[Rfam]
A member of the RNA family "Streptomyces sRNA 4677" from Streptomyces sp. ISL-11, 215 nucleotides long.
It is annotated as a small RNA.
The organism belongs to Streptomyces, within Bacteria.
For this family Rfam cites "Complex intra-operonic dynamics mediated by a small RNA in Streptomyces coelicolor" (Hindra et al., PLoS One, 2014).
From the family's description: Located in the intergenic region between anti-sigma factor SCO4677 gene and a putative regulatory protein gene SCO4676. scr4677 expression requires the SCO4677 activity and scr4677 sRNA itself seem to affect the levels of the SCO4676-associated transcripts.

RNA sequence: UGAACCGGAGUUGCUCGACGUCCCGUCAAGAAGGACUGGGGGAAAGUACCGAACCACUCCCAACCGCCUGUGUCACCCCAUCGGGUGACUGGGUGGCAGGUAUGGGCAAGGGCGCGGUACGUUCGCGCCACAACUCCCAUACAGACGACGGCCCCCGGCCGGGACUGGCAUCCCGAUCGAGGGCCUGAUCAUCCAGGAAGCUAGAGGCCUUCCCC
Numbered sequence: 001u002g003a004a005c006c007g008g009a010g011u012u013g014c015u016c017g018a019c020g021u022c023c024c025g026u027c028a029a030g031a032a033g034g035a036c037u038g039g040g041g042g043a044a045a046g047u048a049c050c051g052a053a054c055c056a057c058u059c060c061c062a063a064c065c066g067c068c069u070g071u072g073u074c075a076c077c078c079c080a081u082c083g084g085g086u087g088a089c090u091g092g093g094u095g096g097c098a099g100g101u102a103u104g105g106g107c108a109a110g111g112g113c114g115c116g117g118u119a120c121g122u123u124c125g126c127g128c129c130a131c132a133a134c135u136c137c138c139a140u141a142c143a144g145a146c147g148a149c150g151g152c153c154c155c156c157g158g159c160c161g162g163g164a165c166u167g168g169c170a171u172c173c174c175g176a177u178c179g180a181g182g183g184c185c186u187g188a189u190c191a192u193c194c195a196g197g198a199a200g201c202u203a204g205a206g207g208c209c210u211u212c213c214c215c
Base pairs, nucleotide, nucleotide: 007193008192010190017068019066020065073088074087075086076085077084078083096126097125099124100123150185151184152183153182154181156179157178161174162173163172164171196213197212198211199210200209